Small nucleolar RNA snoR100: a 118-nucleotide RNA from Ananas comosus. Lineage of the source: Eukaryota > Embryophyta > Petrosaviidae > commelinids > Ananas. Rfam links the family to the GO terms RNA processing and nucleolus. The family's consensus secondary structure was predicted with WAR. A search with the family's covariance model found it, with a score of 82 bits.

RNA sequence: AUAUGAAGGAAGCAUGGUAAUGAGCACAGAGAAUGAAGGAAAAAAAUAGGGUCAUUAUGUCUGCUCACUUUGAUGCCCUCGGGCGAUGAUCUCGCGGGCCUGGAUUGCACCCACACCU
Dot-bracket structure: ...........((.(......).)).......................(((((.....(((.(((................)))...)))......))))).................